[Rfam]
RNA sequence: CGAACGAAAAGCUUGUGUAAGGGGAAAACAUACGGACAACGAGAUUUGCUCGUCGUCAUCAUAACCCUUGGGAAGGUCUGAGAAAAACUAUAAAAAUCUCUAGCUGAGAUUCCUGUGAGAGUGGGGGCGAACAACCAGACACGAUACCCUCCUGGAUUAUAAUAUGAAGUCUUUUGACGGAUUGACAUAGUCCAUGGAGUGUUUGAACGCGGUUCGCUAGUGGUAGCUCUAUGGAGUACGAUACGCAAGGCAUCAUAUAUGAUGUAACUCAAUUCAGACUACUCUUUCGUUCG
Numbered sequence: 001c002g003a004a005c006g007a008a009a010a011g012c013u014u015g016u017g018u019a020a021g022g023g024g025a026a027a028a029c030a031u032a033c034g035g036a037c038a039a040c041g042a043g044a045u046u047u048g049c050u051c052g053u054c055g056u057c058a059u060c061a062u063a064a065c066c067c068u069u070g071g072g073a074a075g076g077u078c079u080g081a082g083a084a085a086a087a088c089u090a091u092a093a094a095a096a097u098c099u100c101u102a103g104c105u106g107a108g109a110u111u112c113c114u115g116u117g118a119g120a121g122u123g124g125g126g127g128c129g130a131a132c133a134a135c136c137a138g139a140c141a142c143g144a145u146a147c148c149c150u151c152c153u154g155g156a157u158u159a160u161a162a163u164a165u166g167a168a169g170u171c172u173u174u175u176g177a178c179g180g181a182u183u184g185a186c187a188u189a190g191u192c193c194a195u196g197g198a199g200u201g202u203u204u205g206a207a208c209g210c211g212g213u214u215c216g217c218u219a220g221u222g223g224u225a226g227c228u229c230u231a232u233g234g235a236g237u238a239c240g241a242u243a244c245g246c247a248a249g250g251c252a253u254c255a256u257a258u259a260u261g262a263u264g265u266a267a268c269u270c271a272a273u274u275c276a277g278a279c280u281a282c283u284c285u286u287u288c289g290u291u292c293g
Stems, first nucleotide, its partner, number of pairs: 001293004007287003012249007020069005035057003039053005078277005087221004096110005111126006127217006145201003250265006